RNA sequence: GAAUCUCAGCAGGGGUGCUUUUCUAGCUGAGAGGACUAUUUGUCCAACCCUUUGAACCUGUUGGUUAAUACCAGCGUAGGGAAGCUGAUAAAAAAUUUUC
Number, nucleotide and partner (000 for none) at each position: 001g000002a000003a000004u000005c000006u088007c087008a086009g085010c084011a051012g050013g049014g048015g000016u000017g027018c026019u025020u000021u000022u000023c000024u000025a019026g018027c017028u000029g000030a000031g000032a000033g000034g044035a043036c042037u000038a000039u000040u000041u000042g036043u035044c034045c000046a000047a000048c014049c013050c012051u011052u000053u000054g000055a000056a000057c080058c079059u078060g077061u074062u073063g072064g071065u000066u000067a000068a000069u000070a000071c064072c063073a062074g061075c000076g000077u060078a059079g058080g057081g000082a000083a000084g010085c009086u008087g007088a006089u000090a000091a000092a000093a000094a000095a000096u000097u000098u000099u000100c000

TPP riboswitch aptamer (THI element): a 100-nucleotide RNA from Pectinatus brassicae. A search with the family's covariance model found it, with a score of 74 bits.